A member of the RNA family "Selenocysteine transfer RNA" from Peptostreptococcus sp. D1, 93 nucleotides long. Pairs were carried over by alignment from the consensus structure, which is taken from published work.
[Rfam]
RNA sequence: GGGAGUGAAUGGGUGCUGGUGUGCCCUCUAGUCUUCAAAACUAGUAUGAGGGGUUAGUAGCCUCUUGGGUGAGUUCGAUUCUCACGCAUUCCC
Numbered sequence: 001g002g003g004a005g006u007g008a009a010u011g012g013g014u015g016c017u018g019g020u021g022u023g024c025c026c027u028c029u030a031g032u033c034u035u036c037a038a039a040a041c042u043a044g045u046a047u048g049a050g051g052g053g054u055u056a057g058u059a060g061c062c063u064c065u066u067g068g069g070u071g072a073g074u075u076c077g078a079u080u081c082u083c084a085c086g087c088a089u090u091c092c093c
Stems, first nucleotide, its partner, number of pairs: 001093007011026006028044005048064004070084004